RNA sequence: ACAGGUCUGAGGCCAAAGCAGAAGAGCUCACAGUGUGGUCAUAUCAGAUUCCAACAAAUCUGUGAAUUCUGCU
Numbered sequence: 001a002c003a004g005g006u007c008u009g010a011g012g013c014c015a016a017a018g019c020a021g022a023a024g025a026g027c028u029c030a031c032a033g034u035g036u037g038g039u040c041a042u043a044u045c046a047g048a049u050u051c052c053a054a055c056a057a058a059u060c061u062g063u064g065a066a067u068u069c070u071g072c073u
Stems, first nucleotide, its partner, number of pairs: 011040004017073007024036001026034001045062006
RNA: Mammalian CPEB3 ribozyme